[Rfam]
RNA sequence: AGUUGCUCAUUCACCUUUUUAUGAUAGUCCCGCGUUUAAGCGGAAUAUGCACUUCAUAAACCAUCGAAUGAUGCCUAAGAAUGGUGCCUAUCGUCCACCGAAACCGAUAAUUGCUGCGCAAGCGCUUUAUCAAGCAUCGGACGACACGUUGAGUGAGGCACCGCCUA
Dot-bracket structure: ....((((((((......((((((.(((......................)))))))))......)))))).))........(((((((..(((((.........(((((................))))).......))))).(((.....)))))))))).....
Notes
This 167-nucleotide RNA from Yersinia ruckeri belongs to the Rfam family "Glm Y RNA activator of glmS mRNA". This family consists of a number of bacterial RNA genes of around 167 bases in length. The tke1 RNA gene is present in Escherichia coli, Shigella flexneri, Yersinia pestis and Salmonella species where it is found between the yfhK and purL genes. The function of this RNA is unknown. On this family, see Reichenbach et al., Nucleic Acids Res 2008: "The small RNA GlmY acts upstream of the sRNA GlmZ in the activation of glmS expression and is subject to regulation by polyadenylation in Escherichia coli". The family is grouped with related families in Rfam's "Glm clan". By type it is a small RNA.